[Rfam]
A member of the RNA family "Mammalian CPEB3 ribozyme" from Scyliorhinus torazame, 78 nucleotides long. Pairs were carried over by alignment from the consensus structure, which is taken from published work. The match comes from Rfam's covariance-model search (41 bits). Its family is annotated with RNA nuclease activity in the Gene Ontology. The family has 14 seed sequences and 5,706 matches in Rfam 15.1. Rfam describes the family as follows. The mammalian CPEB3 ribozyme is a self cleaving RNA located in the second intron of the CPEB3 gene which belongs to a family of genes regulating messenger RNA polyadenylation.
RNA sequence: AGAAUAGAGGGGGAGGUCACAGAAAGAGUGUUCAUGUCUUGACCCCUGGCAGCCUUUAUGUAACCUGUGAAUAUUUCU
Numbered sequence: 001a002g003a004a005u006a007g008a009g010g011g012g013g014a015g016g017u018c019a020c021a022g023a024a025a026g027a028g029u030g031u032u033c034a035u036g037u038c039u040u041g042a043c044c045c046c047u048g049g050c051a052g053c054c055u056u057u058a059u060g061u062a063a064c065c066u067g068u069g070a071a072u073a074u075u076u077c078u
Stems, first nucleotide, its partner, number of pairs: 013046001015044004021078005027072001028040001030038001050067003055062001